[Rfam]
RNA sequence: UUCUCUGAUAUAGACUCUUCUCUUAGAGUAUUUGACAGACUGUGGUUGACACUCGAUUUAAGGGGGUGUCAGUUUGUCAAAUACCCCAAGAGAGGAGGCACGAGUC
Numbered sequence: 001u002u003c004u005c006u007g008a009u010a011u012a013g014a015c016u017c018u019u020c021u022c023u024u025a026g027a028g029u030a031u032u033u034g035a036c037a038g039a040c041u042g043u044g045g046u047u048g049a050c051a052c053u054c055g056a057u058u059u060a061a062g063g064g065g066g067u068g069u070c071a072g073u074u075u076g077u078c079a080a081a082u083a084c085c086c087c088a089a090g091a092g093a094g095g096a097g098g099c100a101c102g103a104g105u106c
Stems, first nucleotide, its partner, number of pairs: 020092004026086001028084014048070004053065002
RNA: mir-223 microRNA precursor family